[Rfam]
RNA: SAM-I/IV (S-adenosyl methionine) riboswitch aptamer
Organism: Sphingobacterium sp. JB170
RNA sequence: GUAGGGUAUUCAGAAUUGCUAAGCAAUACCAACCGAGUUCGUAACCACGGUGGUAAAACAAUACGGGAUGUUGUCAAAAAUUGUCGCAGCU
Dot-bracket structure: .....(((((....(((((...)))))(((..(((.((....[))..))).))).....))))).((......))........].......